Annotation:
The record is a 116-nucleotide sequence from Pelotomaculum schinkii, which matches "Ribosomal protein L20 leader" in Rfam. About the family: This family is a putative r-protein leader autoregulatory structure found in B. subtilis and other low-GC Gram-positive bacteria. It is located in the 5' untranslated regions of mRNAs encoding initiation factor 3 followed by ribosomal proteins L35 and L20 (infC-rpmI-rplT). The match comes from Rfam's covariance-model search (64 bits). By type it is a cis-regulatory leader. NCBI's taxonomy places the organism under Bacteria, Bacillota, Eubacteriales, Desulfotomaculaceae, Pelotomaculum.

RNA sequence: CUUACAAAGUAGAAGCCAUCCGCUUCUCACCUUACGACGCUUGUAUAGCAGUCCAUAAGGUUCUUGAUAGUUUAGAUAUUUAAGCGGGUGGAUUUUGCCCGCUUUUUUAUUUGGGU
Numbered sequence: 001c002u003u004a005c006a007a008a009g010u011a012g013a014a015g016c017c018a019u020c021c022g023c024u025u026c027u028c029a030c031c032u033u034a035c036g037a038c039g040c041u042u043g044u045a046u047a048g049c050a051g052u053c054c055a056u057a058a059g060g061u062u063c064u065u066g067a068u069a070g071u072u073u074a075g076a077u078a079u080u081u082a083a084g085c086g087g088g089u090g091g092a093u094u095u096u097g098c099c100c101g102c103u104u105u106u107u108u109a110u111u112u113g114g115g116u
Stems, first nucleotide, its partner, number of pairs: 011027006029061003036053003039049002083103009